[Rfam]
RNA sequence: GUUCCCUGUGAUGCUUCAUUACUGACCAUGCUAAUUCUGAUAAUCAGAUGAAUGAAAGCUACAUCACGUUAUUUUCUGAGGGAACU
Numbered sequence: 001g002u003u004c005c006c007u008g009u010g011a012u013g014c015u016u017c018a019u020u021a022c023u024g025a026c027c028a029u030g031c032u033a034a035u036u037c038u039g040a041u042a043a044u045c046a047g048a049u050g051a052a053u054g055a056a057a058g059c060u061a062c063a064u065c066a067c068g069u070u071a072u073u074u075u076c077u078g079a080g081g082g083a084a085c086u
Stems, first nucleotide, its partner, number of pairs: 001085007